RNA: glmS glucosamine-6-phosphate activated ribozyme aptamer
Organism: Clostridium sp. L2-50
RNA sequence: UUAGAAAUCUUAGCGCCAUGUCCCUUUUAUCCUGGCAUUGAAGGACUGACAGAUGCGGUGUAAACGUGGUUGGUCGGUACAGCCUGUUGAGAAGGGUAACGAGGAUGGAGGUUAUCGAAAAUUCGGCGGAUGCCUCUACGUAGAGUCCGGAUGCGCACAUGUAUGUCAAAUAUGGGAGAAAUCUCAAAACAAAACAGCAUGACCGGAUAAU
Numbered sequence: 001u002u003a004g005a006a007a008u009c010u011u012a013g014c015g016c017c018a019u020g021u022c023c024c025u026u027u028u029a030u031c032c033u034g035g036c037a038u039u040g041a042a043g044g045a046c047u048g049a050c051a052g053a054u055g056c057g058g059u060g061u062a063a064a065c066g067u068g069g070u071u072g073g074u075c076g077g078u079a080c081a082g083c084c085u086g087u088u089g090a091g092a093a094g095g096g097u098a099a100c101g102a103g104g105a106u107g108g109a110g111g112u113u114a115u116c117g118a119a120a121a122u123u124c125g126g127c128g129g130a131u132g133c134c135u136c137u138a139c140g141u142a143g144a145g146u147c148c149g150g151a152u153g154c155g156c157a158c159a160u161g162u163a164u165g166u167c168a169a170a171u172a173u174g175g176g177a178g179a180a181a182u183c184u185c186a187a188a189a190c191a192a193a194a195c196a197g198c199a200u201g202a203c204c205g206g207a208u209a210a211u
Stems, first nucleotide, its partner, number of pairs: 020097004025092003029088001106138005115126004139155004158201005164196001173186005